[Rfam]
RNA sequence: ACACACGAAGGGAGGUGGUCCGAAGAAUGCUUGCUCAUCGGACGCGUGAGGUGGCUACCAGCUAGCCGCACGCUCGCUACGCGAGAGCGCGGCGGGCUAUUCCCAAGUAGCUACCCGACCCGUGGGCUCGCCGGAUCGUCCGUCCGGUGCCUGGUGGAUCCGCGAGGAUCUCCAGGAAGUGGCCCACGGGUUGUCCUUU
Numbered sequence: 001a002c003a004c005a006c007g008a009a010g011g012g013a014g015g016u017g018g019u020c021c022g023a024a025g026a027a028u029g030c031u032u033g034c035u036c037a038u039c040g041g042a043c044g045c046g047u048g049a050g051g052u053g054g055c056u057a058c059c060a061g062c063u064a065g066c067c068g069c070a071c072g073c074u075c076g077c078u079a080c081g082c083g084a085g086a087g088c089g090c091g092g093c094g095g096g097c098u099a100u101u102c103c104c105a106a107g108u109a110g111c112u113a114c115c116c117g118a119c120c121c122g123u124g125g126g127c128u129c130g131c132c133g134g135a136u137c138g139u140c141c142g143u144c145c146g147g148u149g150c151c152u153g154g155u156g157g158a159u160c161c162g163c164g165a166g167g168a169u170c171u172c173c174a175g176g177a178a179g180u181g182g183c184c185c186a187c188g189g190g191u192u193g194u195c196c197u198u199u
Base pairs, nucleotide, nucleotide: 014059015058016057017056018055019054060098061097062096063095065093066092068090069089071087073085074084075083116193117192118191119190120189121188122187123186124185125184126183127182128181130148131147132146133145134144135143
RNA: Actinobacteria sRNA Ms_IGR-5
Organism: Wenjunlia tyrosinilytica